[Rfam]
RNA sequence: GCGGCGGUAGUCUAGCCUGGAUUAGGACGCUGGCCUUCCAAGCCAGAGGUCCCGGGUUCAAAUCCCGGCCGCCGCA
Numbered sequence: 001g002c003g004g005c006g007g008u009a010g011u012c013u014a015g016c017c018u019g020g021a022u023u024a025g026g027a028c029g030c031u032g033g034c035c036u037u038c039c040a041a042g043c044c045a046g047a048g049g050u051c052c053c054g055g056g057u058u059c060a061a062a063u064c065c066c067g068g069c070c071g072c073c074g075c076a
Base pairs, nucleotide, nucleotide: 001075002074003073004072005071006070007069010028011027012026013025030046031045032044033043034042052068053067054066055065056064
Dot-bracket structure: (((((((..((((...........)))).(((((.......))))).....(((((.......)))))))))))).

Rfam assigns this 76-nucleotide RNA sequence from Caldisphaera lagunensis to the family "tRNA". Lineage of the source: Archaea > Thermoproteati > Thermoprotei > Acidilobaceae > Caldisphaera lagunensis. Rfam describes the family as follows. Transfer RNA (tRNA) molecules are approximately 80 nucleotides in length. Rfam classes the family as a transfer RNA.